The family of this 318-nucleotide RNA sequence from Spizaetus tyrannus is "Small Cajal body-specific RNA 7". The organism belongs to Spizaetus, within Eukaryota. It scores 186 bits against the family's covariance model. On this family, see Darzacq et al., EMBO J 2002: "Cajal body-specific small nuclear RNAs: a novel class of 2'-O-methylation and pseudouridylation guide RNAs".
RNA sequence: UGGAAGUGAUGAAAUAGAGAUAAUUGGAUGUCUGUUUGAAUGGAGUGUGUGUGAUAAAUGGAAUUUAAACCAAGUUAAACUGGGGGUGGGGUGUGGGGAAUGUGUGUGUCUGUGCAUGUAUAGAAGAGGCUUAAAGCGGGGGCACUGAUAAUGCAGUGCUGAUUCCGGAGUGCAUCUGAGGCAUGUUGUUGAGUUCUGGGGUGCCACUUUACGACAUUGCCAAUGAUUAAAGCCCAAAACAAGCCCACCAAGAUAAGCCUAGGCAUCUUAAAUCUCUAACAGGUUCAUUAAUGAAAGUGAUCCUGUGAUCUGAUCCAA
Numbered sequence: 001u002g003g004a005a006g007u008g009a010u011g012a013a014a015u016a017g018a019g020a021u022a023a024u025u026g027g028a029u030g031u032c033u034g035u036u037u038g039a040a041u042g043g044a045g046u047g048u049g050u051g052u053g054a055u056a057a058a059u060g061g062a063a064u065u066u067a068a069a070c071c072a073a074g075u076u077a078a079a080c081u082g083g084g085g086g087u088g089g090g091g092u093g094u095g096g097g098g099a100a101u102g103u104g105u106g107u108g109u110c111u112g113u114g115c116a117u118g119u120a121u122a123g124a125a126g127a128g129g130c131u132u133a134a135a136g137c138g139g140g141g142g143c144a145c146u147g148a149u150a151a152u153g154c155a156g157u158g159c160u161g162a163u164u165c166c167g168g169a170g171u172g173c174a175u176c177u178g179a180g181g182c183a184u185g186u187u188g189u190u191g192a193g194u195u196c197u198g199g200g201g202u203g204c205c206a207c208u209u210u211a212c213g214a215c216a217u218u219g220c221c222a223a224u225g226a227u228u229a230a231a232g233c234c235c236a237a238a239a240c241a242a243g244c245c246c247a248c249c250a251a252g253a254u255a256a257g258c259c260u261a262g263g264c265a266u267c268u269u270a271a272a273u274c275u276c277u278a279a280c281a282g283g284u285u286c287a288u289u290a291a292u293g294a295a296a297g298u299g300a301u302c303c304u305g306u307g308a309u310c311u312g313a314u315c316c317a318a
Stems, first nucleotide, its partner, number of pairs: 001317004184216006191209001193204002196201001

The family's RNA type in Rfam is small Cajal body RNA.